[Rfam]
RNA sequence: AGCUUUGCGCAGUGGCAGUAUCGUAGCCAAUGAGGUUUAUCCAAGGCGCGAUUAUUGCUAAUUGAAAACUUUUCCCAAUACCCUGCCAAUGACGACUUGAAAUAUAGUCGUCAUUGGUUAAAAAAAAAAAAAA
Number, nucleotide and partner (000 for none) at each position: 001a000002g000003c000004u000005u000006u000007g000008c000009g000010c000011a000012g000013u000014g000015g000016c000017a000018g000019u000020a052021u051022c050023g049024u048025a000026g047027c046028c045029a000030a000031u000032g000033a000034g042035g041036u000037u000038u000039a000040u000041c035042c034043a000044a000045g028046g027047c026048g024049c023050g022051a021052u020053u000054a000055u000056u000057g000058c000059u000060a000061a000062u000063u000064g000065a000066a000067a000068a000069c000070u000071u000072u000073u000074c000075c000076c000077a000078a000079u000080a000081c000082c000083c000084u000085g118086c117087c116088a115089a114090u113091g112092a111093c110094g109095a108096c107097u000098u000099g000100a000101a000102a000103u000104a000105u000106a000107g096108u095109c094110g093111u092112c091113a090114u089115u088116g087117g086118u085119u000120a000121a000122a000123a000124a000125a000126a000127a000128a000129a000130a000131a000132a000133a000
About this RNA: The record is a 133-nucleotide RNA from Ictidomys tridecemlineatus, which matches "U4 spliceosomal RNA" in Rfam. Taxonomically the source falls in Ictidomys (Eukaryota, Opisthokonta, Deuterostomia, Marmotini). Rfam 15.1 lists 32,178 matches to the family in 2,547 species. The family is grouped with related families in Rfam's "U4 clan". Its family is annotated with spliceosomal tri-snRNP complex assembly and U4 snRNP in the Gene Ontology.